[Rfam]
RNA sequence: CUCUGGUACCUAGAGAUCCCUCAGACCAUCUAGACUGAGUGAAAAAUCUCUAGCAGUGGCGCCCGAACAGGGACUUGAAAACGAAAGUAGAACCGGAG
Numbered sequence: 001c002u003c004u005g006g007u008a009c010c011u012a013g014a015g016a017u018c019c020c021u022c023a024g025a026c027c028a029u030c031u032a033g034a035c036u037g038a039g040u041g042a043a044a045a046a047u048c049u050c051u052a053g054c055a056g057u058g059g060c061g062c063c064c065g066a067a068c069a070g071g072g073a074c075u076u077g078a079a080a081a082c083g084a085a086a087g088u089a090g091a092a093c094c095g096g097a098g
Stems, first nucleotide, its partner, number of pairs: 001098007010053008019041001020039001022037001024035001026033001055088001057086001060083002062072003075080001
RNA: HIV primer binding site (PBS)
Organism: Lentivirus humimdef1